[Rfam]
RNA sequence: AGAGGCCCUCUGCGGCUGGGGUGGGACGCUUGCCUCAUCGCCAUGGCGACAAAGCAAGCAUUCCUCCAGGCUGCUCAAGCUGCCCAC
Numbered sequence: 001a002g003a004g005g006c007c008c009u010c011u012g013c014g015g016c017u018g019g020g021g022u023g024g025g026a027c028g029c030u031u032g033c034c035u036c037a038u039c040g041c042c043a044u045g046g047c048g049a050c051a052a053a054g055c056a057a058g059c060a061u062u063c064c065u066c067c068a069g070g071c072u073g074c075u076c077a078a079g080c081u082g083c084c085c086a087c
Stems, first nucleotide, its partner, number of pairs: 004084003012074006020067002023064004028059006038049004

About this RNA: This 87-nucleotide RNA from Cnephaeus nilssonii belongs to the Rfam family "mir-9195 microRNA precursor family". The family's consensus secondary structure was predicted with RNAalifold. Gene Ontology terms of the family: miRNA-mediated post-transcriptional gene silencing and RISC complex. Lineage of the source: Eukaryota > Deuterostomia > Sarcopterygii > Vespertilionidae > Cnephaeus.